Lysine riboswitch aptamer: a 197-nucleotide RNA from Shewanella oneidensis. Pairs were carried over by alignment from the consensus structure, which is taken from published work. NCBI's taxonomy places the organism under Bacteria, Pseudomonadota, Shewanellaceae, Shewanella, Shewanella oneidensis. A search with the family's covariance model found it, with a score of 112 bits. Riboswitches are metabolite binding domains within certain messenger RNAs that serve as precision sensors for their corresponding targets.
[Rfam]
RNA sequence: CUUAGAAGUAGAGACGCACCAAAUAUCAGUAGUGAUCAGUAGGGUGAUUCCAUUGAUCGAUCACGAAAGGAUUUGGUACCGAAGUGGUUUGAUUUAUCACGAUCAACUGCUGGGGUUGUGCUGAAUAGGUACAAUACUGCCGUAGUAUUUCCUGAUAUGGAUAUUCGGAAUCGUUACUAUGGAGUGCUACUGAUAGG
Numbered sequence: 001c002u003u004a005g006a007a008g009u010a011g012a013g014a015c016g017c018a019c020c021a022a023a024u025a026u027c028a029g030u031a032g033u034g035a036u037c038a039g040u041a042g043g044g045u046g047a048u049u050c051c052a053u054u055g056a057u058c059g060a061u062c063a064c065g066a067a068a069g070g071a072u073u074u075g076g077u078a079c080c081g082a083a084g085u086g087g088u089u090u091g092a093u094u095u096a097u098c099a100c101g102a103u104c105a106a107c108u109g110c111u112g113g114g115g116u117u118g119u120g121c122u123g124a125a126u127a128g129g130u131a132c133a134a135u136a137c138u139g140c141c142g143u144a145g146u147a148u149u150u151c152c153u154g155a156u157a158u159g160g161a162u163a164u165u166c167g168g169a170a171u172c173g174u175u176a177c178u179a180u181g182g183a184g185u186g187c188u189a190c191u192g193a194u195a196g197g
Stems, first nucleotide, its partner, number of pairs: 007191005016079001018077007032064006039057001083111005089106006112138002115135008140182007